The family of this 118-nucleotide RNA sequence from Thermoanaerobacterium thermosaccharolyticum is "c-di-AMP riboswitch aptamer (ydaO/yuaA leader)".
The organism belongs to Thermoanaerobacterium thermosaccharolyticum, within Bacteria.
RNA sequence: UUAAAAAAAAUGCCUAAUCGAAAGAACGGGGGAUAUUUUUGGGGUGAAUCCGCUUUUGCGGUAGGGUUGCUCUUUACCGAACCCGUCAACUAACCUCGUAGGCAUAAAGAGAGGAUGG
Numbered sequence: 001u002u003a004a005a006a007a008a009a010a011u012g013c014c015u016a017a018u019c020g021a022a023a024g025a026a027c028g029g030g031g032g033a034u035a036u037u038u039u040u041g042g043g044g045u046g047a048a049u050c051c052g053c054u055u056u057u058g059c060g061g062u063a064g065g066g067u068u069g070c071u072c073u074u075u076a077c078c079g080a081a082c083c084c085g086u087c088a089a090c091u092a093a094c095c096u097c098g099u100a101g102g103c104a105u106a107a108a109g110a111g112a113g114g115a116u117g118g
Stems, first nucleotide, its partner, number of pairs: 011104004018025002026099006034041002042084003050061004064078002067076001